The family of this 141-nucleotide RNA sequence from Saccharibacillus sacchari is "SAM riboswitch aptamer (S box leader)". The organism belongs to Saccharibacillus sacchari, within Bacteria.
RNA sequence: UUCUUAUCGAGAGAGGCGGAGGGACAGGCCCGAUGAAGCCCGGCAACCGAUCCUGUACACGAACGUCGCAAGCAGACGUCGCGUCAGGGUGUCAUGGUGCUAAUUCCUACAGAAUCAACAGACGGUUCUGGCAGAUGAGAA
Number, nucleotide and partner (000 for none) at each position: 001u141002u140003c139004u138005u137006a136007u135008c134009g000010a000011g000012a000013g041014a000015g040016g039017c038018g000019g000020a000021g031022g030023g029024a000025c000026a108027g107028g106029c023030c022031c021032g000033a000034u000035g000036a000037a000038g017039c016040c015041c013042g101043g100044c099045a098046a000047c097048c096049g093050a092051u091052c000053c000054u000055g000056u000057a000058c000059a000060c000061g000062a000063a000064c000065g000066u000067c000068g000069c000070a000071a000072g000073c000074a000075g000076a000077c000078g000079u000080c000081g000082c000083g000084u000085c000086a000087g000088g000089g000090u000091g051092u050093c049094a000095u000096g048097g047098u045099g044100c043101u042102a000103a000104u000105u133106c028107c027108u026109a000110c130111a129112g128113a127114a126115u125116c000117a000118a000119c000120a000121g000122a000123c000124g000125g115126u114127u113128c112129u111130g110131g000132c000133a105134g008135a007136u006137g005138a004139g003140a002141a001
Rfam links the family to the GO term regulation of gene expression.